[Rfam]
Shown here is an 87-nucleotide RNA from Chara braunii, a member of the family "Small nucleolar RNA U83B". Pairs were carried over by alignment from the consensus structure. Rfam describes the family as follows. U83B belongs to the C/D family of snoRNAs. U83B like U83A has no documented RNA target and they share the same host gene with the C/D box snoRNA U43 (RPL3). A reference for the family is Duga et al. (2000), "The intron-containing L3 ribosomal protein gene (RPL3): sequence analysis and identification of U43 and of two novel intronic small nucleolar RNAs", Biochim Biophys Acta.
RNA sequence: UAUCAUCUAUGAUGAGCGAACGGAUAAUAAUCACGAGUUCAUGAAUCUGUGAUGAAAAGUCUUUGUUGCCUUCCUUCUGAGAUGAUG
Number, nucleotide and partner (000 for none) at each position: 001u087002a086003u085004c084005a083006u000007c000008u000009a000010u000011g000012a000013u000014g000015a000016g000017c000018g000019a000020a000021c000022g000023g000024a000025u000026a000027a000028u000029a000030a000031u000032c000033a000034c000035g000036a000037g000038u000039u000040c000041a000042u000043g000044a000045a000046u000047c000048u000049g000050u000051g000052a000053u000054g000055a000056a000057a000058a000059g000060u000061c000062u000063u000064u000065g000066u000067u000068g000069c000070c000071u000072u000073c000074c000075u000076u000077c000078u000079g000080a000081g000082a000083u005084g004085a003086u002087g001